Rfam assigns this 141-nucleotide RNA sequence from Sarcophilus harrisii to the family "Small nucleolar RNA SNORA46". The family's RNA type in Rfam is H/ACA-box small nucleolar RNA. About the family: ACA46 is a member of the H/ACA class of snoRNA that guide the sites of modification of uridines to pseudouridines. Gene Ontology terms of the family: RNA processing and nucleolus. The base pairs follow the family's consensus structure, which was predicted with RNAfold. Rfam 15.1 lists 582 matches to the family in 490 species.
[Rfam]
RNA sequence: AGCACUAUUUUUUAAACCUAUUGAUGGGAAUUUUUACCACUUUAGGUUACGCUGUAGUGCCAAAGAAUCCCUUAAUGCCUAUCCUAGCACAGCUGACUGUCCAUUUAGCUUGUGCUCUGCUGGUAGUAUUAAGGAACAUGA
Numbered sequence: 001a002g003c004a005c006u007a008u009u010u011u012u013u014a015a016a017c018c019u020a021u022u023g024a025u026g027g028g029a030a031u032u033u034u035u036a037c038c039a040c041u042u043u044a045g046g047u048u049a050c051g052c053u054g055u056a057g058u059g060c061c062a063a064a065g066a067a068u069c070c071c072u073u074a075a076u077g078c079c080u081a082u083c084c085u086a087g088c089a090c091a092g093c094u095g096a097c098u099g100u101c102c103a104u105u106u107a108g109c110u111u112g113u114g115c116u117c118u119g120c121u122g123g124u125a126g127u128a129u130u131a132a133g134g135a136a137c138a139u140g141a
Base pairs, nucleotide, nucleotide: 002060003059004058005057006056007055008054015048016047017046018045023041025039026038027037068136070134071133072132074130075129076128077127078126083123084122087115088114089113091110092109093108095106096105